[Rfam]
RNA sequence: UACUAAACCCGACAGAAGCGGAAAUACUUUUAUUUGUUUUUAAAGAGUUGACAAAUCAAUAUCCAAUUGCAAAGGAUUUAUAAACUCUACAAAUAAAAGAUUGUAGCAAAUGGUGGGCCGAACA
Numbered sequence: 001u002a003c004u005a006a007a008c009c010c011g012a013c014a015g016a017a018g019c020g021g022a023a024a025u026a027c028u029u030u031u032a033u034u035u036g037u038u039u040u041u042a043a044a045g046a047g048u049u050g051a052c053a054a055a056u057c058a059a060u061a062u063c064c065a066a067u068u069g070c071a072a073a074g075g076a077u078u079u080a081u082a083a084a085c086u087c088u089a090c091a092a093a094u095a096a097a098a099g100a101u102u103g104u105a106g107c108a109a110a111u112g113g114u115g116g117g118c119c120g121a122a123c124a
Stems, first nucleotide, its partner, number of pairs: 009116003013112002018107002023102003029097008
This 124-nucleotide sequence from Pedobacter cryotolerans belongs to the Rfam family "Flavo-1 RNA". Pairs were carried over by alignment from the consensus structure, which is taken from published work. Rfam classes the family as a small RNA. A search with the family's covariance model found it, with a score of 43 bits.